[Rfam]
RNA sequence: AGGCCAGGACGGCCCGGCUGCUCCAUGCAUGGACCAGGACGGCCUGG
Numbered sequence: 001a002g003g004c005c006a007g008g009a010c011g012g013c014c015c016g017g018c019u020g021c022u023c024c025a026u027g028c029a030u031g032g033a034c035c036a037g038g039a040c041g042g043c044c045u046g047g
Stems, first nucleotide, its partner, number of pairs: 002019004007014002034047005
Dot-bracket structure: .((((.((....)).))))..............(((((....)))))
The record is a 47-nucleotide sequence from Apteryx australis, which matches "Guanidine-II riboswitch aptamer (mini-ykkC)" in Rfam. Rfam's curators write: Simpler in structure and has fewer highly conserved nucleotide positions than the ykkC-yxkD leader.